[Rfam]
RNA: Singlet oxygen resistance RNA X
RNA sequence: AUCCCGCUCGUGACGGUGAUUGCUUCUGGCGUCACCAUCAUACCUCCCUGUUGGACUAUGGCCGAGCUUAGUGCUCGGCCUUUUUU
Numbered sequence: 001a002u003c004c005c006g007c008u009c010g011u012g013a014c015g016g017u018g019a020u021u022g023c024u025u026c027u028g029g030c031g032u033c034a035c036c037a038u039c040a041u042a043c044c045u046c047c048c049u050g051u052u053g054g055a056c057u058a059u060g061g062c063c064g065a066g067c068u069u070a071g072u073g074c075u076c077g078g079c080c081u082u083u084u085u086u
Stems, first nucleotide, its partner, number of pairs: 008037001010035005060080008